[Rfam]
RNA sequence: AGUUGCAAGUUUGAGGCCAAAGCAGAAGCACUCGUGGUGCAGCCUAUUAGACUCCAGUGAAUCUGCAAAUUCUGCU
Numbered sequence: 001a002g003u004u005g006c007a008a009g010u011u012u013g014a015g016g017c018c019a020a021a022g023c024a025g026a027a028g029c030a031c032u033c034g035u036g037g038u039g040c041a042g043c044c045u046a047u048u049a050g051a052c053u054c055c056a057g058u059g060a061a062u063c064u065g066c067a068a069a070u071u072c073u074g075c076u
Stems, first nucleotide, its partner, number of pairs: 015044003021076007028040003048065004053060002
Notes:
This 76-nucleotide sequence from Alligator mississippiensis belongs to the Rfam family "Mammalian CPEB3 ribozyme". Taxonomically the source falls in Alligator (Eukaryota, Sauropsida, Sauria, Archelosauria). Pairs were carried over by alignment from the consensus structure, which is taken from published work.